[Rfam]
RNA: Rhizobiales sRNA Atu_C8
RNA sequence: GAUGAUCGCAACGGCUCUCGUGGUGGUAGGAAAGCGCAUGGGCAGGAUGGUGUAACCAUCCGGCGAUAGCCACCCAUGCGCGGUAAACAGGCUCCUGACGGGGCCUUUUUUUAUGCCCGAA
Numbered sequence: 001g002a003u004g005a006u007c008g009c010a011a012c013g014g015c016u017c018u019c020g021u022g023g024u025g026g027u028a029g030g031a032a033a034g035c036g037c038a039u040g041g042g043c044a045g046g047a048u049g050g051u052g053u054a055a056c057c058a059u060c061c062g063g064c065g066a067u068a069g070c071c072a073c074c075c076a077u078g079c080g081c082g083g084u085a086a087a088c089a090g091g092c093u094c095c096u097g098a099c100g101g102g103g104c105c106u107u108u109u110u111u112u113a114u115g116c117c118c119g120a121a
Stems, first nucleotide, its partner, number of pairs: 009026001029117002032114001034081009045061006063070002087107001089106007